[Rfam]
RNA sequence: UAUGCACUCUACUGUAAGUCGCUCUGGAUAAGAGCGUCUGCUAAAAUGACGUAAA
Numbered sequence: 001u002a003u004g005c006a007c008u009c010u011a012c013u014g015u016a017a018g019u020c021g022c023u024c025u026g027g028a029u030a031a032g033a034g035c036g037u038c039u040g041c042u043a044a045a046a047u048g049a050c051g052u053a054a055a
Base pairs, nucleotide, nucleotide: 013043014041015040016039020036021035022034023033024032025031
RNA: UnaL2 LINE 3' element
Organism: Salvelinus namaycush